[Rfam]
mir-2060 microRNA precursor family: a 94-nucleotide sequence from Branchiostoma floridae.
It scores 84 bits against the family's covariance model.

RNA sequence: AUUUGACUGUGUGUGGAUAGUGUUCAGCACCAAGGACAGGUGUGUUUGGUUGUGUGUGGAUAGUGUUCAGCACCAAGGACAGGUGUGUUUGGUU
Number, nucleotide and partner (000 for none) at each position: 001a000002u000003u000004u085005g084006a000007c082008u081009g080010u079011g000012u000013g000014u000015g000016g000017a000018u075019a000020g073021u072022g071023u070024u069025c000026a067027g066028c065029a064030c063031c000032a061033a000034g055035g000036a053037c052038a051039g050040g000041u048042g047043u000044g000045u000046u000047u042048g041049g000050u039051u038052g037053u036054g000055u034056g000057u000058g000059g000060a000061u032062a000063g030064u029065g028066u027067u026068c000069a024070g023071c022072a021073c020074c000075a018076a000077g000078g000079a010080c009081a008082g007083g000084u005085g004086u000087g000088u000089u000090u000091g000092g000093u000094u000
The family has 7 seed sequences and 3,696 matches in Rfam 15.1. Lineage of the source: Eukaryota > Opisthokonta > Cephalochordata > Leptocardii > Branchiostoma.